[Rfam]
RNA: Actino-pnp RNA
RNA sequence: CCCGGUCCUCGGUAGUGAUCUUCAGGAGCCCACCUCGCACCACGGGCUGCUGCGGGUCUCGAUCGAAGAUCGGC
Numbered sequence: 001c002c003c004g005g006u007c008c009u010c011g012g013u014a015g016u017g018a019u020c021u022u023c024a025g026g027a028g029c030c031c032a033c034c035u036c037g038c039a040c041c042a043c044g045g046g047c048u049g050c051u052g053c054g055g056g057u058c059u060c061g062a063u064c065g066a067a068g069a070u071c072g073g074c
Base pairs, nucleotide, nucleotide: 002073003072004071005070006069007068009066010065011064012063013062017058018057019056020055021054023052024051025050027048028047029046030045031044